Description: A member of the RNA family "Iron response element I" from Aotus nancymaae, 35 nucleotides long. The family has 62 seed sequences and 6,829 matches in Rfam 15.1. The family's consensus secondary structure is taken from published work. It scores 35 bits against the family's covariance model. Lineage of the source: Eukaryota > Bilateria > Euarchontoglires > Primates > Aotus. On this family, see Walden et al., Science 2006: "Structure of dual function iron regulatory protein 1 complexed with ferritin IRE-RNA".
RNA sequence: CUGUCUCCUGCUUCAACAGUGUUUGGACCUAACAG
Number, nucleotide and partner (000 for none) at each position: 001c035002u034003g033004u032005c000006u031007c000008c000009u000010g028011c000012u027013u026014c025015a024016a023017c021018a000019g000020u000021g017022u000023u016024u015025g014026g013027a012028c010029c000030u000031a006032a004033c003034a002035g001